RNA: Plastid-psbA-4 3UTR RNA
RNA sequence: AAAAUAAAGGAGCACUACUAAACUUCUUGUAUCAAGAAGUUUAGUAGUGCUCCUUUAU
Numbered sequence: 001a002a003a004a005u006a007a008a009g010g011a012g013c014a015c016u017a018c019u020a021a022a023c024u025u026c027u028u029g030u031a032u033c034a035a036g037a038a039g040u041u042u043a044g045u046a047g048u049g050c051u052c053c054u055u056u057a058u
Stems, first nucleotide, its partner, number of pairs: 006056012021041002024038006